[Rfam]
RNA sequence: UAUUAUUCUCAGGGCGGGGUGCAAGUCCCCACCGGCGGUAUCUUUCAUGCUGGCAGGAUAAUGUCAGUCGCUGAAAGGAGCCCGCGAGCGCCUGCCAUGGCAGGGUCAGCAGAUCCGGUGUGAUGCCGGAGCCGACGGUGAUAGUCCGGAUGAAAGAGAAUACAA
Numbered sequence: 001u002a003u004u005a006u007u008c009u010c011a012g013g014g015c016g017g018g019g020u021g022c023a024a025g026u027c028c029c030c031a032c033c034g035g036c037g038g039u040a041u042c043u044u045u046c047a048u049g050c051u052g053g054c055a056g057g058a059u060a061a062u063g064u065c066a067g068u069c070g071c072u073g074a075a076a077g078g079a080g081c082c083c084g085c086g087a088g089c090g091c092c093u094g095c096c097a098u099g100g101c102a103g104g105g106u107c108a109g110c111a112g113a114u115c116c117g118g119u120g121u122g123a124u125g126c127c128g129g130a131g132c133c134g135a136c137g138g139u140g141a142u143a144g145u146c147c148g149g150a151u152g153a154a155a156g157a158g159a160a161u162a163c164a165a
Stems, first nucleotide, its partner, number of pairs: 004162007017029003031145002033134002035085004088110002114130005136148003
RNA: FMN riboswitch aptamer (RFN element)
Organism: Larsenimonas rhizosphaerae